The family of this 81-nucleotide sequence from Robbsia andropogonis is "Burkholderia sRNA 16 (Bc_KC_sr1)". The family's RNA type in Rfam is small RNA. On this family, see Sass et al., Sci Rep 2017: "Identification of small RNAs abundant in Burkholderia cenocepacia biofilms reveal putative regulators with a potential role in carbon and iron metabolism". The match comes from Rfam's covariance-model search (63 bits). Identified by RNA-seq, RACE and Northern blot. Strongly expressed in biofilm. Also know as Bc_KC_sr1. Upregulated in response to iron ion depletion. Predicted targets include cysteine desulfurase and isochorismatase desulfurase.
RNA sequence: GCAUGUGACGGUGCCUGACCGUAGCGUGCCAUUCUCCUCUUGUCGUUGUUGCUCCGGGGCGUUCUGCCCCGGUCUUUUUGG
Numbered sequence: 001g002c003a004u005g006u007g008a009c010g011g012u013g014c015c016u017g018a019c020c021g022u023a024g025c026g027u028g029c030c031a032u033u034c035u036c037c038u039c040u041u042g043u044c045g046u047u048g049u050u051g052c053u054c055c056g057g058g059g060c061g062u063u064c065u066g067c068c069c070c071g072g073u074c075u076u077u078u079u080g081g
Base pairs, nucleotide, nucleotide: 001029002028003027004026005025006024008022009021010020011019012018054072055071056070057069058068059067060066